Shown here is a 175-nucleotide sequence from Pegethrix bostrychoides, a member of the family "Antisense RNA which regulates isiA expression".
For this family Rfam cites "An internal antisense RNA regulates expression of the photosynthesis gene isiA" (Duhring et al., Proc Natl Acad Sci U S A, 2006).
Lineage of the source: Bacteria > Oculatellales > Oculatellaceae > Pegethrix > Pegethrix bostrychoides.
A search with the family's covariance model found it, with a score of 73 bits.

RNA sequence: GGUAGCCGUAGAUCACCAGCGGAUCGAGCGUGGGGUUUGUCACAGCCCGGACUGCGCCAACUGCCGGAUCGUAAAGGCCGUGACUGCCAGCCCAGAAGACCAGCAGCAGCGCCCCUGCGCCCAAAAACAGCAGAUGAUGUCCCAAAAUCAGGCCGAGUUGCUUCGGAUCGCCCCA
Numbered sequence: 001g002g003u004a005g006c007c008g009u010a011g012a013u014c015a016c017c018a019g020c021g022g023a024u025c026g027a028g029c030g031u032g033g034g035g036u037u038u039g040u041c042a043c044a045g046c047c048c049g050g051a052c053u054g055c056g057c058c059a060a061c062u063g064c065c066g067g068a069u070c071g072u073a074a075a076g077g078c079c080g081u082g083a084c085u086g087c088c089a090g091c092c093c094a095g096a097a098g099a100c101c102a103g104c105a106g107c108a109g110c111g112c113c114c115c116u117g118c119g120c121c122c123a124a125a126a127a128c129a130g131c132a133g134a135u136g137a138u139g140u141c142c143c144a145a146a147a148u149c150a151g152g153c154c155g156a157g158u159u160g161c162u163u164c165g166g167a168u169c170g171c172c173c174c175a
Base pairs, nucleotide, nucleotide: 133172135170136169137168138167141166142165144163145162